RNA: Small nucleolar RNA snoR53Y
RNA sequence: GUUCCCUGUGAUGUUUUACAUAUUUAACCAUGCUAAUACUGAUCACAUAAUGAUUGAUCUUCAAGUUAUCUCUGAGGGAAUU
Numbered sequence: 001g002u003u004c005c006c007u008g009u010g011a012u013g014u015u016u017u018a019c020a021u022a023u024u025u026a027a028c029c030a031u032g033c034u035a036a037u038a039c040u041g042a043u044c045a046c047a048u049a050a051u052g053a054u055u056g057a058u059c060u061u062c063a064a065g066u067u068a069u070c071u072c073u074g075a076g077g078g079a080a081u082u
Base pairs, nucleotide, nucleotide: 001081002080003079004078005077006076007075